A member of the RNA family "TPP riboswitch aptamer (THI element)" from Shewanella sp. SNU WT4, 125 nucleotides long. Taxonomically the source falls in Shewanella (Bacteria, Pseudomonadati, Alteromonadales, Shewanellaceae). Rfam describes the family as follows. Vitamin B(1) in its active form thiamin pyrophosphate (TPP) is an essential coenzyme that is synthesised by coupling of pyrimidine and thiazole moieties in bacteria. It scores 65 bits against the family's covariance model.

[Rfam]
RNA sequence: CCCCAUUAGUCGGGGAGCCAUUAGGCUGAGAUCUACUGCUAAGAGGAUGCAAUCCUCUUAAGUCACAUGAACCCGUUGAACCUGAUUCAGUUAAUACUGACGUAGGGAACUAAUGGUCCUGUGAC
Numbered sequence: 001c002c003c004c005a006u007u008a009g010u011c012g013g014g015g016a017g018c019c020a021u022u023a024g025g026c027u028g029a030g031a032u033c034u035a036c037u038g039c040u041a042a043g044a045g046g047a048u049g050c051a052a053u054c055c056u057c058u059u060a061a062g063u064c065a066c067a068u069g070a071a072c073c074c075g076u077u078g079a080a081c082c083u084g085a086u087u088c089a090g091u092u093a094a095u096a097c098u099g100a101c102g103u104a105g106g107g108a109a110c111u112a113a114u115g116g117u118c119c120u121g122u123g124a125c
Stems, first nucleotide, its partner, number of pairs: 006113005011075004017026003081106004087100004